[Rfam]
Record summary:
Vibrio RNA AS9: a 104-nucleotide sequence from Vibrio ostreae. By type it is an antisense RNA. Identified by direct cloning an parallel sequencing experiments with 5S/tRNA depletion. Confirmed by Northern blot. The family's consensus secondary structure was predicted with RNAfold. NCBI's taxonomy places the organism under Bacteria, Pseudomonadati, Gammaproteobacteria, Vibrionaceae, Vibrio.
RNA sequence: AUUGUGACAACGCUCUUUGGUCAUGGUCAGACAAAUCAGACCGCGGCCGUGGGUCGCCAUAAAGUUGAUCGCUUCCGGCGUAAUAUGCUCGGCAGCCAUGAUCA
Numbered sequence: 001a002u003u004g005u006g007a008c009a010a011c012g013c014u015c016u017u018u019g020g021u022c023a024u025g026g027u028c029a030g031a032c033a034a035a036u037c038a039g040a041c042c043g044c045g046g047c048c049g050u051g052g053g054u055c056g057c058c059a060u061a062a063a064g065u066u067g068a069u070c071g072c073u074u075c076c077g078g079c080g081u082a083a084u085a086u087g088c089u090c091g092g093c094a095g096c097c098a099u100g101a102u103c104a
Stems, first nucleotide, its partner, number of pairs: 004057005010027002014023001035050002039047001041045001066104005071096002075092003078088003